[Rfam]
RNA sequence: UGUCUUGCCUGGCAGGGGAGAUACCAUGAUAACGAAGAUGGUUUUUCCAGGGCGAGGCUUAUCCAUUGCUCACCCCUGAGAUUUCCCUAAAUGCGGGAAACUCACUGAAUAAUUUGUGGAAUUGGGGACCUGCGUUUGUGCUCUCCCCU
Numbered sequence: 001u002g003u004c005u006u007g008c009c010u011g012g013c014a015g016g017g018g019a020g021a022u023a024c025c026a027u028g029a030u031a032a033c034g035a036a037g038a039u040g041g042u043u044u045u046u047c048c049a050g051g052g053c054g055a056g057g058c059u060u061a062u063c064c065a066u067u068g069c070u071c072a073c074c075c076c077u078g079a080g081a082u083u084u085c086c087c088u089a090a091a092u093g094c095g096g097g098a099a100a101c102u103c104a105c106u107g108a109a110u111a112a113u114u115u116g117u118g119g120a121a122u123u124g125g126g127g128a129c130c131u132g133c134g135u136u137u138g139u140g141c142u143c144u145c146c147c148c149u
Base pairs, nucleotide, nucleotide: 013107014106015105016048017047018046019045020044021043023042024041025040026039027038049077050076051075052074054073056070057069058068080103081102082100083099084098086096087095124148125147126146127145128144132141133140134139
Rfam assigns this 149-nucleotide RNA from Peromyscus maniculatus to the family "U1 spliceosomal RNA". The family has 100 seed sequences and 40,184 matches in Rfam 15.1. It scores 86 bits against the family's covariance model. NCBI's taxonomy places the organism under Eukaryota, Bilateria, Deuterostomia, Cricetidae, Peromyscus maniculatus. The base pairs follow the family's consensus structure, which is taken from published work. On this family, see Zwieb, Nucleic Acids Res 1997: "The uRNA database".